Overview:
This 249-nucleotide RNA from Ruminococcaceae bacterium AM28-23LB belongs to the Rfam family "T-box leader". The literature on the family includes a 1994 paper in J Bacteriol by Grundy et al., "Interaction between the acceptor end of tRNA and the T box stimulates antitermination in the Bacillus subtilis tyrS gene: a new role for the discriminator base".
RNA sequence: AUAAAGGCUGUGAAGGGCAGGAGUAUCCCGGUGAAGCGGCAUAGAGAGGGCACGGUUGGUGGAAGUGCUCCCAAGGCGCCGGGGGAAUGUGGUCCCUGAGCCGCAGGCUGAACCGCCCUUUUGGGCACAGUAGGCCCCGCCGUUUGGCCCGCGUUAAGGGAAAAGGCGCUGUCUGGCGCCGGAGUGUGCGUUUUUUAACGCAAAUAUGGGUGGUACCGCGGAAGUGAAAUGUUUACCUCCGUCCCGUAA
Numbered sequence: 001a002u003a004a005a006g007g008c009u010g011u012g013a014a015g016g017g018c019a020g021g022a023g024u025a026u027c028c029c030g031g032u033g034a035a036g037c038g039g040c041a042u043a044g045a046g047a048g049g050g051c052a053c054g055g056u057u058g059g060u061g062g063a064a065g066u067g068c069u070c071c072c073a074a075g076g077c078g079c080c081g082g083g084g085g086a087a088u089g090u091g092g093u094c095c096c097u098g099a100g101c102c103g104c105a106g107g108c109u110g111a112a113c114c115g116c117c118c119u120u121u122u123g124g125g126c127a128c129a130g131u132a133g134g135c136c137c138c139g140c141c142g143u144u145u146g147g148c149c150c151g152c153g154u155u156a157a158g159g160g161a162a163a164a165g166g167c168g169c170u171g172u173c174u175g176g177c178g179c180c181g182g183a184g185u186g187u188g189c190g191u192u193u194u195u196u197a198a199c200g201c202a203a204a205u206a207u208g209g210g211u212g213g214u215a216c217c218g219c220g221g222a223a224g225u226g227a228a229a230u231g232u233u234u235a236c237c238u239c240c241g242u243c244c245c246g247u248a249a
Stems, first nucleotide, its partner, number of pairs: 007101002015096003026084006038072002048070006104139001106136004141153003187202006207246004218242005
The base pairs follow the family's consensus structure, which is taken from published work.